[Rfam]
RNA sequence: CUUCAUGAGUGGCCGUCGCCAAGCUCCGACUGGGCGGCCCGCCAACCCCACGCUCGUGGGUGGCUCGGAUGACGAAGCGACCGUCGCCGACCGGCAGCGGUAAGAGCGCCUC
Numbered sequence: 001c002u003u004c005a006u007g008a009g010u011g012g013c014c015g016u017c018g019c020c021a022a023g024c025u026c027c028g029a030c031u032g033g034g035c036g037g038c039c040c041g042c043c044a045a046c047c048c049c050a051c052g053c054u055c056g057u058g059g060g061u062g063g064c065u066c067g068g069a070u071g072a073c074g075a076a077g078c079g080a081c082c083g084u085c086g087c088c089g090a091c092c093g094g095c096a097g098c099g100g101u102a103a104g105a106g107c108g109c110c111u112c
Stems, first nucleotide, its partner, number of pairs: 001077004009040001011039005017034001022031002041064003046060003050057002080101005086095003

The family of this 112-nucleotide RNA from Mycobacterium triviale is "SAM (S-adenosyl methionine) riboswitch aptamer". For this family Rfam cites "The aptamer core of SAM-IV riboswitches mimics the ligand-binding site of SAM-I riboswitches" (Weinberg et al., RNA, 2008).